SAM riboswitch aptamer (S box leader): a 108-nucleotide sequence from Shouchella oshimensis. The family has 457 seed sequences and 9,625 matches in Rfam 15.1. From the family's description: The SAM riboswitch is found upstream of a number of genes which code for proteins involved in methionine or cysteine biosynthesis in Gram-positive bacteria. Pairs were carried over by alignment from the consensus structure, which is taken from published work. A search with the family's covariance model found it, with a score of 97 bits.
RNA sequence: UUCUUAUCCAGAGUGGUGGAGGGACUGGCCCGUUGAAACCCGGCAACCGCAAACGUAAUGUUUGAAGGUGCUAAAUCCUGCAAAGCCAUAAGCUUUGAAAGAUGAGAU
Numbered sequence: 001u002u003c004u005u006a007u008c009c010a011g012a013g014u015g016g017u018g019g020a021g022g023g024a025c026u027g028g029c030c031c032g033u034u035g036a037a038a039c040c041c042g043g044c045a046a047c048c049g050c051a052a053a054c055g056u057a058a059u060g061u062u063u064g065a066a067g068g069u070g071c072u073a074a075a076u077c078c079u080g081c082a083a084a085g086c087c088a089u090a091a092g093c094u095u096u097g098a099a100a101g102a103u104g105a106g107a108u
Base pairs, nucleotide, nucleotide: 002107003106004105005104006103007102008101013041015040016039017038021031022030023029025080027078028077042072043071044070045069047068048067050064051063052062053061076100081097082096083095084094085093086092